[Rfam]
RNA sequence: ACCAUACUUUCCCUGGGGUUGUGCUACUGUCCAAUGAGUACACCGUAAGAGCAGUUCUGCCAACUCUACCUAACACACUUGCCUCAACUAGAGCUUCGCUUCACCUCAGUGUAAUUUUUGGAAAA
Numbered sequence: 001a002c003c004a005u006a007c008u009u010u011c012c013c014u015g016g017g018g019u020u021g022u023g024c025u026a027c028u029g030u031c032c033a034a035u036g037a038g039u040a041c042a043c044c045g046u047a048a049g050a051g052c053a054g055u056u057c058u059g060c061c062a063a064c065u066c067u068a069c070c071u072a073a074c075a076c077a078c079u080u081g082c083c084u085c086a087a088c089u090a091g092a093g094c095u096u097c098g099c100u101u102c103a104c105c106u107c108a109g110u111g112u113a114a115u116u117u118u119u120g121g122a123a124a125a
Base pairs, nucleotide, nucleotide: 007017008016009015021060022059023058026055027054028053029052030051032049038046039045081112082111084109089103091101092100093099094098
This 125-nucleotide RNA from Callithrix jacchus belongs to the Rfam family "U4atac minor spliceosomal RNA". A reference for the family is Lorkovic et al. (2005), "Evolutionary conservation of minor U12-type spliceosome between plants and humans", RNA. The family is grouped with related families in Rfam's "U4 clan". Rfam classes the family as a spliceosomal small nuclear RNA. U4atac is an essential component of the minor U12-type spliceosome complex which is required for removal of the rarer class of eukaryotic introns (AT-AC, U12-type).